[Rfam]
Nucleotides: 104
Base pairs, nucleotide, nucleotide: 001100002099003098004097005096006095007094010092011091016083018082019081020080028067029066030065032063033062
Number, partner (000 for none) and nucleotide at each position: 001100g002099g003098c004097u005096a006095g007094u008000c009000c010092a011091a012000c013000u014000u015000u016083a017000g018082u019081g020080g021000u022000a023000u024000u025000u026000a027000c028067a029066a030065u031000u032063a033062a034000u035000u036000g037000a038000u039000c040000a041000c042000a043000g044000c045000c046000a047000g048000u049000u050000a051000c052000a053000g054000a055000u056000u057000c058000u059000u060000u061000u062033u063032u064000u065030g066029u067028u068000c069000c070000a071000u072000c073000u074000a075000c076000a077000c078000u079000c080020c081019c082018a083016u084000g085000c086000u087000u088000c089000a090000c091011u092010u093000a094007a095006c096005u097004a098003g099002c100001u101000u102000u103000u104000a